[Rfam]
RNA sequence: UGACCAGGGGGCCGGGACGCGUUGAUCAUAUGAUCGGCGUGACCUAGGGGUACAGGGAGUACCUCCGCCAAGGGCCGGGUCAGGCAAGCC
Numbered sequence: 001u002g003a004c005c006a007g008g009g010g011g012c013c014g015g016g017a018c019g020c021g022u023u024g025a026u027c028a029u030a031u032g033a034u035c036g037g038c039g040u041g042a043c044c045u046a047g048g049g050g051u052a053c054a055g056g057g058a059g060u061a062c063c064u065c066c067g068c069c070a071a072g073g074g075c076c077g078g079g080u081c082a083g084g085c086a087a088g089c090c
Stems, first nucleotide, its partner, number of pairs: 001082005010076004014045003018041001020039008047065007
RNA: ivy-DE RNA